Shown here is a 126-nucleotide RNA sequence from Sporomusa malonica, a member of the family "c-di-AMP riboswitch aptamer (ydaO/yuaA leader)".
The source organism's lineage runs through Bacteria, Bacillati, Bacillota, Sporomusaceae and Sporomusa.

RNA sequence: CCAUUAAAUACGCCGAAUCCUGGACAGGUACGGAGGACCCUUUCAUUUGGGGUGAAGCGCAGUAGCGCAGGGCUAAGCCUGGCCCUAACCCGGCAGCUAACUCCGGAGGCGACGAGAGGCGGUUCG
Numbered sequence: 001c002c003a004u005u006a007a008a009u010a011c012g013c014c015g016a017a018u019c020c021u022g023g024a025c026a027g028g029u030a031c032g033g034a035g036g037a038c039c040c041u042u043u044c045a046u047u048u049g050g051g052g053u054g055a056a057g058c059g060c061a062g063u064a065g066c067g068c069a070g071g072g073c074u075a076a077g078c079c080u081g082g083c084c085c086u087a088a089c090c091c092g093g094c095a096g097c098u099a100a101c102u103c104c105g106g107a108g109g110c111g112a113c114g115a116g117a118g119g120c121g122g123u124u125c126g
Base pairs, nucleotide, nucleotide: 011111012110013109014108019028020027031105032104033103034102035101040049050091051090052089058067059066060065070085071084072083073082
Its family is annotated with regulation of gene expression and cyclic-di-AMP binding in the Gene Ontology.